[Rfam]
RNA sequence: UUAUAAGCAGAUAUUCACUUUUCAGAUUCAUUGAAUAACUGGUGUAUCUGAUCUAUAUUAAAGAUCAAGUACAUCAGUUAUUCAAUGAAUCUUAAAAGAGAAUAUUUGUUUAUAA
Numbered sequence: 001u002u003a004u005a006a007g008c009a010g011a012u013a014u015u016c017a018c019u020u021u022u023c024a025g026a027u028u029c030a031u032u033g034a035a036u037a038a039c040u041g042g043u044g045u046a047u048c049u050g051a052u053c054u055a056u057a058u059u060a061a062a063g064a065u066c067a068a069g070u071a072c073a074u075c076a077g078u079u080a081u082u083c084a085a086u087g088a089a090u091c092u093u094a095a096a097a098g099a100g101a102a103u104a105u106u107u108g109u110u111u112a113u114a115a
Stems, first nucleotide, its partner, number of pairs: 002114006009107005015101002018098005024092002027089018049067004
RNA: MIR2593 microRNA precursor family
Organism: Trifolium medium